[Rfam]
RNA: Selenocysteine insertion sequence 4
RNA sequence: GGCACCUGCACUCGCUGCGGCGCAGCGAUGGCAAAGGA
Numbered sequence: 001g002g003c004a005c006c007u008g009c010a011c012u013c014g015c016u017g018c019g020g021c022g023c024a025g026c027g028a029u030g031g032c033a034a035a036g037g038a
Stems, first nucleotide, its partner, number of pairs: 005031002013027006